[Rfam]
RNA: Caulobacter sRNA CC0196
Organism: Brevundimonas sp. M20
RNA sequence: UCUUCGAGGACACCCACCAUCACCGAACUUUUUCAGCCCGGCGCUAGCGUCGGGCUUUU
Numbered sequence: 001u002c003u004u005c006g007a008g009g010a011c012a013c014c015c016a017c018c019a020u021c022a023c024c025g026a027a028c029u030u031u032u033u034c035a036g037c038c039c040g041g042c043g044c045u046a047g048c049g050u051c052g053g054g055c056u057u058u059u
Stems, first nucleotide, its partner, number of pairs: 035056008
Dot-bracket structure: ..................................((((((((......))))))))...